[Rfam]
RNA sequence: GAGAAGCUGAAAUCGAAAUGUUAAAAUUCACCCGUCUACUUGGCCUACUACUCAACGCAGAAUCAUUGCGCGGUAUGCCAGUGGGUGAAAGCAAGAACUGAUUUCAGCCUCCACAAAUAGCAAACCCGCGCAAAUGCGCGGGUUUUUUU
Numbered sequence: 001g002a003g004a005a006g007c008u009g010a011a012a013u014c015g016a017a018a019u020g021u022u023a024a025a026a027u028u029c030a031c032c033c034g035u036c037u038a039c040u041u042g043g044c045c046u047a048c049u050a051c052u053c054a055a056c057g058c059a060g061a062a063u064c065a066u067u068g069c070g071c072g073g074u075a076u077g078c079c080a081g082u083g084g085g086u087g088a089a090a091g092c093a094a095g096a097a098c099u100g101a102u103u104u105c106a107g108c109c110u111c112c113a114c115a116a117a118u119a120g121c122a123a124a125c126c127c128g129c130g131c132a133a134a135u136g137c138g139c140g141g142g143u144u145u146u147u148u149u
Stems, first nucleotide, its partner, number of pairs: 004110001006108005012102003016099001028088008049075004056070004122145010
A member of the RNA family "Leucine operon leader", 149 nucleotides long.
At least 6 amino acid operons are known to be regulated by attenuation. In each a leader sequence of 150-200 bp is found upstream of the first gene in the operon. This leader sequence can assume two different secondary structures known as the terminator and the anti-terminator structure. In each case the leader also codes for very short peptide sequence that is rich in the end product amino acid of the operon.
Gene Ontology term of the family: leucine biosynthetic process.